[Rfam]
RNA: tRNA
RNA sequence: GCCGCUAUGGCGCAAUUGGUAGCGCACCCCACUUGUAAUGGGAAGGUUUCGGGUUCGAGUCCCGAUAGCGGCU
Dot-bracket structure: (((((((..((((........))))..((((.......))))......(((((.......)))))))))))).